[Rfam]
RNA sequence: UUGCCUUAAACUAAUGAGUAAGGAAAAUAACAAGUCUUGGUAACUCAAGAUUUAAGGGCUCAGUCCCUACAUUUCAAUUUUUGAAGGAGAGAGGCCACCCCUGGGGGACUCUUCUACUUAGAGAGACCCUCUUGCGUUUGUGGUCUCC
Numbered sequence: 001u002u003g004c005c006u007u008a009a010a011c012u013a014a015u016g017a018g019u020a021a022g023g024a025a026a027a028u029a030a031c032a033a034g035u036c037u038u039g040g041u042a043a044c045u046c047a048a049g050a051u052u053u054a055a056g057g058g059c060u061c062a063g064u065c066c067c068u069a070c071a072u073u074u075c076a077a078u079u080u081u082u083g084a085a086g087g088a089g090a091g092a093g094g095c096c097a098c099c100c101c102u103g104g105g106g107g108a109c110u111c112u113u114c115u116a117c118u119u120a121g122a123g124a125g126a127c128c129c130u131c132u133u134g135c136g137u138u139u140g141u142g143g144u145c146u147c148c
Base pairs, nucleotide, nucleotide: 004023005022006021007020008019032053033052034051035050036049037048038047039046054072056070058068089148092146093145094144095143096142097141098140101134103131104130105129106128107127109125110124111123112122113121
A member of the RNA family "U12 minor spliceosomal RNA" from Amphimedon queenslandica, 148 nucleotides long. Its Rfam clan is "U2 clan". Its family is annotated with U12 snRNP, mRNA branch site recognition and pre-mRNA branch point binding in the Gene Ontology. It is annotated as a spliceosomal small nuclear RNA.